[Rfam]
The family of this 383-nucleotide part of an RNA from Thermoplasmatales archaeon I-plasma is "Archaeal large subunit ribosomal RNA".
Rfam's curators put it in the seed alignment.
The source organism's lineage runs through Archaea, Methanobacteriati, Thermoplasmatota, Thermoplasmata and Thermoplasmatales.
Rfam links the family to the GO terms ribosome and structural constituent of ribosome.

RNA sequence: GAAAGUAGCAGCAUAGAGUCGUGAGAAUCGACUCCGCCGAAAGGGCUAAGGGUUCCUCGGCAACGAUCGUCAGCCGAGGGUUAGCCGGUCCUAAGGUAAUCCCUAACUCGAGAUUACCGAAUGGGAAAACGGUUAAUAUUCCGUUGCCUCAACUGUUCUGUCUCAGCAAUGACAUUUAGGGAUAGGUCGAGUAAUCCCGUCAGAUUAUUUUUGUCCAUACAUCGAUGGAGUACCGUAAUGGUGAGAAGUCGAUAAAAGGACACAAGCUGCCCUAGUGGUGGUUCGGCCAAUUCCUUGAAUCCGUGAAAAUUUGCUGAGAGUCAAAGUUGAGUCCGUACCAAGAACCGACACUGGUGCCCCUGGGUGAGAAGCCCAAGGCGUAU
Numbered sequence: 001g002a003a004a005g006u007a008g009c010a011g012c013a014u015a016g017a018g019u020c021g022u023g024a025g026a027a028u029c030g031a032c033u034c035c036g037c038c039g040a041a042a043g044g045g046c047u048a049a050g051g052g053u054u055c056c057u058c059g060g061c062a063a064c065g066a067u068c069g070u071c072a073g074c075c076g077a078g079g080g081u082u083a084g085c086c087g088g089u090c091c092u093a094a095g096g097u098a099a100u101c102c103c104u105a106a107c108u109c110g111a112g113a114u115u116a117c118c119g120a121a122u123g124g125g126a127a128a129a130c131g132g133u134u135a136a137u138a139u140u141c142c143g144u145u146g147c148c149u150c151a152a153c154u155g156u157u158c159u160g161u162c163u164c165a166g167c168a169a170u171g172a173c174a175u176u177u178a179g180g181g182a183u184a185g186g187u188c189g190a191g192u193a194a195u196c197c198c199g200u201c202a203g204a205u206u207a208u209u210u211u212u213g214u215c216c217a218u219a220c221a222u223c224g225a226u227g228g229a230g231u232a233c234c235g236u237a238a239u240g241g242u243g244a245g246a247a248g249u250c251g252a253u254a255a256a257a258g259g260a261c262a263c264a265a266g267c268u269g270c271c272c273u274a275g276u277g278g279u280g281g282u283u284c285g286g287c288c289a290a291u292u293c294c295u296u297g298a299a300u301c302c303g304u305g306a307a308a309a310u311u312u313g314c315u316g317a318g319a320g321u322c323a324a325a326g327u328u329g330a331g332u333c334c335g336u337a338c339c340a341a342g343a344a345c346c347g348a349c350a351c352u353g354g355u356g357c358c359c360c361u362g363g364g365u366g367a368g369a370a371g372c373c374c375a376a377g378g379c380g381u382a383u
Stems, first nucleotide, its partner, number of pairs: 016034006035380004043359004050339002055079006065071001086335003090124002095118006102110001128145005148331007168312002174300009185288005190209006213261004222252005232242003345354002361375004